Small nucleolar RNA SNORA68: a 131-nucleotide sequence from Castor canadensis. The literature on the family includes a 1997 paper in Genes Dev by Ganot et al., "The family of box ACA small nucleolar RNAs is defined by an evolutionarily conserved secondary structure and ubiquitous sequence elements essential for RNA accumulation". U68 is a member of the H/ACA class of small nucleolar RNAs (snoRNAs) which act as guides in the the modification of uridines to pseudouridines. The base pairs follow the family's consensus structure, which was predicted with PFOLD. By type it is an H/ACA-box small nucleolar RNA. Rfam links the family to the GO terms nucleolus and RNA processing. Lineage of the source: Eukaryota > Mammalia > Theria > Glires > Castor.
RNA sequence: GCCGCGCCCCAACCCAAAAAGCCGCUGCUUGCGGUAGCAGGGGUUUCAGCGAUGGCGCGCACAGCAAGGGGCCUCGUCGCCUUUGGGGGGCUGCGGCCGUGCCCCAAAGUGAAUGUGGAGGUUCUACAACC
Numbered sequence: 001g002c003c004g005c006g007c008c009c010c011a012a013c014c015c016a017a018a019a020a021g022c023c024g025c026u027g028c029u030u031g032c033g034g035u036a037g038c039a040g041g042g043g044u045u046u047c048a049g050c051g052a053u054g055g056c057g058c059g060c061a062c063a064g065c066a067a068g069g070g071g072c073c074u075c076g077u078c079g080c081c082u083u084u085g086g087g088g089g090g091c092u093g094c095g096g097c098c099g100u101g102c103c104c105c106a107a108a109g110u111g112a113a114u115g116u117g118g119a120g121g122u123u124c125u126a127c128a129a130c131c
Stems, first nucleotide, its partner, number of pairs: 003059006020045004025040005069124007081109005088104004